[Rfam]
RNA sequence: UGCAAAUGAUGUUUCUCACGAUGGUCUUCCAAGCCUUGUGGUUGUGACGACACUGCCUAAUGGCAACAACUGAUGCAGUCCA
Numbered sequence: 001u002g003c004a005a006a007u008g009a010u011g012u013u014u015c016u017c018a019c020g021a022u023g024g025u026c027u028u029c030c031a032a033g034c035c036u037u038g039u040g041g042u043u044g045u046g047a048c049g050a051c052a053c054u055g056c057c058u059a060a061u062g063g064c065a066a067c068a069a070c071u072g073a074u075g076c077a078g079u080c081c082a
Stems, first nucleotide, its partner, number of pairs: 001077004
Rfam assigns this 82-nucleotide RNA from Salmo salar to the family "Small nucleolar RNA SNORD35". Rfam links the family to the GO terms RNA processing and nucleolus. A search with the family's covariance model found it, with a score of 52 bits. Rfam describes the family as follows. U35 is a C/D box snoRNA located in intron 6 of ribosomal protein L13A and intron 3 of ribosomal protein S11 in humans and at homologous positions in mouse and chicken ribosomal protein genes. U35 guides the methylation of 2'-O-ribose sites in 28S rRNA.